The family of this 97-nucleotide RNA from Rosa chinensis is "Small nucleolar RNA Z43". NCBI's taxonomy places the organism under Eukaryota, Streptophytina, Pentapetalae, Rosales, Rosa. The base pairs follow the family's consensus structure, which was predicted with PFOLD. The match comes from Rfam's covariance-model search (86 bits). Rfam 15.1 lists 859 matches to the family in 240 species.
[Rfam]
Nucleotides: 097
Stems, first nucleotide, its partner, number of pairs: 001097004048056001
Number, partner (000 for none) and nucleotide at each position: 001097g002096g003095a004094c005000c006000g007000u008000g009000a010000c011000g012000a013000u014000u015000c016000a017000a018000u019000u020000g021000a022000u023000a024000a025000g026000g027000u028000c029000u030000c031000g032000u033000u034000c035000g036000u037000c038000g039000u040000a041000a042000u043000u044000g045000g046000c047000c048056g049000c050000a051000a052000g053000g054000c055000c056048u057000u058000g059000c060000c061000g062000a063000c064000c065000a066000u067000u068000c069000u070000g071000u072000u073000a074000u075000a076000u077000c078000a079000c080000c081000a082000c083000c084000c085000a086000u087000u088000a089000u090000c091000u092000g093000a094004g095003u096002c097001c